Overview:
The family of this 260-nucleotide sequence from Prunus armeniaca is "RNase MRP". For this family Rfam cites "Phylogenetic analysis of the structure of RNase MRP RNA in yeasts" (Li et al., RNA, 2002). Rfam's curators write: RNase MRP is an enzymatically active ribonucleoprotein with two distinct roles in eukaryotes. The organism belongs to Prunus, within Eukaryota. The base pairs follow the family's consensus structure, which is taken from published work. The match comes from Rfam's covariance-model search (64 bits). Rfam links the family to the GO terms rRNA processing, ribonuclease MRP complex and ribonuclease MRP activity.
[Rfam]
Nucleotides: 260
Stems, first nucleotide, its partner, number of pairs: 002260010014218004019213001022052004030045001032043003057246003061243004079090004092105005118184002124180002127177001133173004145167004155160001220230004
Number, partner (000 for none) and nucleotide at each position: 001000a002260c003259a004258u005257c006256a007255c008254u009253g010252g011251g012000c013000g014218a015217a016216g017215c018000a019213a020000a021000u022052g023051g024050g025049c026000c027000a028000c029000g030045g031000u032043u033042c034041u035000a036000u037000a038000a039000a040000a041034g042033g043032a044000u045030c046000u047000a048000g049025g050024c051023u052022c053000a054000g055000g056000a057246a058245a059244g060000u061243c062242c063241c064240c065000g066000g067000g068000c069000c070000c071000c072000c073000a074000c075000u076000c077000a078000c079090u080089g081088c082087a083000g084000a085000g086000a087082u088081g089080c090079a091000g092105g093104c094103c095102u096101g097000g098000a099000a100000a101096c102095a103094g104093g105092u106000a107000a108000c109000c110000u111000c112000c113000g114000a115000g116000c117000g118184c119183u120000u121000g122000g123000a124180g125179u126000c127177u128000u129000u130000a131000u132000c133173g134172c135171c136170u137000u138000g139000u140000g141000c142000g143000a144000u145167g146166g147165g148164c149000u150000g151000a152000g153000a154000c155160a156000u157000g158000u159000g160155u161000g162000g163000a164148g165147c166146c167145u168000c169000u170136g171135g172134g173133c174000u175000u176000c177127a178000a179125a180124c181000c182000c183119g184118g185000a186000a187000u188000a189000u190000a191000u192000c193000u194000u195000g196000g197000c198000c199000g200000a201000u202000u203000g204000u205000a206000c207000a208000g209000u210000u211000a212000u213019u214000c215017g216016c217015u218014u219000g220230g221229u222228c223227c224000u225000u226000u227223g228222g229221a230220c231000u232000a233000a234000c235000u236000g237000a238000a239000c240064g241063g242062g243061g244059c245058u246057u247000a248000c249000g250000a251011u252010c253009c254008a255007g256006u257005g258004g259003u260002g